[Rfam]
RNA: Small nucleolar RNA SNORA32
RNA sequence: UGGUCAUUACCAAGGAUACUAGGAACUACCAUUUCUGGCGUGCUGUGGACAUGACCAUAAAGUAACUCCAUCAGAUUUUUGCAUUGCUACUUUAGUAGCACUACAUCUGUUGGAAACAAGU
Numbered sequence: 001u002g003g004u005c006a007u008u009a010c011c012a013a014g015g016a017u018a019c020u021a022g023g024a025a026c027u028a029c030c031a032u033u034u035c036u037g038g039c040g041u042g043c044u045g046u047g048g049a050c051a052u053g054a055c056c057a058u059a060a061a062g063u064a065a066c067u068c069c070a071u072c073a074g075a076u077u078u079u080u081g082c083a084u085u086g087c088u089a090c091u092u093u094a095g096u097a098g099c100a101c102u103a104c105a106u107c108u109g110u111u112g113g114a115a116a117c118a119a120g121u
Base pairs, nucleotide, nucleotide: 003055004054005053006052007051010048011047012046027042028041029040067114068113069112070111074107075106076105085100086099087098